Rfam assigns this 74-nucleotide RNA from Loxodonta africana to the family "Small nucleolar RNA SNORD107". A reference for the family is Runte et al. (2001), "The IC-SNURF-SNRPN transcript serves as a host for multiple small nucleolar RNA species and as an antisense RNA for UBE3A", Hum Mol Genet. Pairs were carried over by alignment from the consensus structure, which was predicted with WAR. Rfam 15.1 lists 144 matches to the family in 129 species.

[Rfam]
RNA sequence: GGUUCAUGAUGAUAAUGGACCUUAUCUGAAUGUAAUGAUUUCAAACUUUGAGCUUAAAAUGACUUUCUGAAACC
Number, nucleotide and partner (000 for none) at each position: 001g074002g073003u072004u071005c000006a000007u000008g000009a000010u000011g000012a000013u000014a000015a000016u000017g000018g000019a000020c000021c000022u000023u000024a000025u000026c000027u000028g000029a000030a000031u000032g000033u000034a000035a000036u000037g000038a000039u000040u000041u000042c000043a000044a000045a000046c000047u000048u000049u000050g000051a000052g000053c000054u000055u000056a000057a000058a000059a000060u000061g000062a000063c000064u000065u000066u000067c000068u000069g000070a000071a004072a003073c002074c001